[Rfam]
Source information:
This 576-nucleotide part of an RNA from Methanobacterium sp. A39 belongs to the Rfam family "Archaeal large subunit ribosomal RNA". For this family Rfam cites "The comparative RNA web (CRW) site: an online database of comparative sequence and structure information for ribosomal, intron, and other RNAs" (Cannone et al., BMC Bioinformatics, 2002). The match comes from Rfam's covariance-model search (2889 bits). Gene Ontology terms of the family: ribosome and structural constituent of ribosome. Rfam 15.1 lists 2,955 matches to the family in 1,139 species.

Nucleotides: 576
Base pairs, nucleotide, nucleotide: 001572002571003570004569005568006567007566008565010564011563012562014559015558022393023392024391025390027389028388029385030384031383032382033381035187036186037185038184042179043178044177045176046175047174048173051154052153053152054151055150057148058147059146060145061144062143063142064141065140068137078136079135080134081133082132085119086118087117097110098109099108100107101106158167159166160165190203191201192200193199204226205225206224207223208222209221229332230331235287236286237285238284239283240282241267242266244262245261246260247259248258249257268277269276292318293317294316295315296314297313298312299311300310320329322327343371344370345369346368347367349366351365352364353363354362402443403442404441406440407437408436409435410434411433412432413431417427418426454529455527456526457525458524459521460518461517462516463515464514467492468491471486472485473484474483475482495507496506497505498504535553536552537551538550539548540547541546
Number, partner (000 for none) and nucleotide at each position: 001572c002571u003570u004569c005568u006567a007566g008565u009000g010564g011563g012562a013000a014559g015558c016000g017000a018000a019000g020000a021000c022393c023392c024391c025390g026000u027389a028388g029385a030384g031383c032382u033381u034000u035187a036186c037185u038184g039000c040000a041000g042179u043178c044177u045176g046175u047174c048173g049000u050000u051154g052153a053152g054151g055150c056000u057148u058147g059146g060145u061144c062143a063142u064141a065140g066000u067000u068137a069000u070000g071000c072000a073000g074000u075000g076000u077000a078136u079135a080134u081133g082132g083000g084000a085119g086118g087117c088000u089000u090000a091000g092000a093000a094000g095000c096000c097110a098109g099108g100107a101106c102000g103000c104000c105000a106101g107100u108099u109098c110097u111000g112000g113000u114000g115000g116000a117087g118086c119085c120000g121000u122000u123000a124000a125000u126000g127000a128000g129000a130000c131000a132082c133081c134080a135079u136078a137068u138000u139000c140065c141064u142063g143062u144061g145060a146059c147058u148057g149000u150055g151054u152053c153052u154051c155000u156000a157000a158167c159166u160165c161000g162000a163000a164000a165160g166159a167158g168000g169000a170000c171000a172000c173048c174047g175046g176045u177044a178043g179042a180000u181000g182000g183000g184038c185037a186036g187035u188000u189000u190203g191201g192200c193199u194000g195000g196000g197000g198000c199193g200192g201191c202000a203190c204226g205225c206224g207223c208222u209221u210000g211000a212000a213000a214000a215000g216000a217000u218000a219000u220000c221209a222208a223207g224206c225205g226204c227000g228000c229332c230331c231000a232000a233000a234000g235287g236286u237285u238284g239283g240282c241267u242266c243000a244262g245261g246260u247259g248258g249257g250000a251000c252000a253000g254000a255000g256000a257249u258248c259247c260246a261245c262244c263000g264000u265000a266242g267241a268277g269276u270000g271000u272000a273000a274000g275000g276269g277268c278000a279000a280000a281000a282240g283239c284238c285237a286236g287235c288000c289000u290000g291000a292318c293317u294316g295315g296314a297313u298312u299311c300310u301000c302000c303000a304000u305000a306000g307000u308000a309000c310300g311299g312298a313297a314296u315295c316294c317293a318292g319000a320329g321000g322327c323000g324000a325000a326000a327322g328000c329320c330000g331230g332229g333000c334000c335000u336000a337000a338000c339000g340000a341000a342000c343371c344370u345369c346368a347367a348000u349366g350000u351365c352364c353363u354362u355000g356000u357000c358000g359000a360000u361000g362354a363353g364352g365351g366349c367347u368346u369345g370344a371343g372000a373000u374000g375000a376000c377000a378000g379000a380000a381033a382032a383031g384030c385029u386000a387000c388028c389027u390025c391024g392023g393022g394000g395000a396000u397000a398000a399000c400000u401000g402443g403442g404441u405000g406440g407437u408436c409435g410434c411433a412432g413431g414000c415000a416000a417427g418426a419000g420000c421000c422000c423000a424000u425000a426418u427417c428000g429000a430000c431413c432412c433411u434410g435409c436408g437407g438000c439000u440406u441404g442403c443402u444000a445000c446000u447000u448000c449000g450000a451000u452000g453000u454529c455527g456526g457525u458524u459521c460518u461517u462516u463515c464514c465000a466000u467492c468491c469000u470000g471486g472485g473484u474483g475482u476000g477000c478000a479000g480000c481000a482475g483474c484473a485472c486471c487000c488000a489000a490000g491468g492467g493000u494000g495507g496506g497505g498504u499000u500000g501000u502000u503000c504498g505497c506496c507495c508000a509000u510000u511000a512000a513000a514464g515463g516462g517461g518460a519000a520000c521459g522000u523000g524458a525457g526456c527455u528000g529454g530000g531000u532000u533000u534000a535553g536552a537551c538550c539548g540547u541546c542000g543000u544000g545000a546541g547540a548539c549000a550538g551537g552536u553535u554000g555000g556000u557000u558015g559014c560000u561000a562012u563011c564010u565008a566007c567006u568005a569004g570003a571002a572001g573000u574000g575000u576000u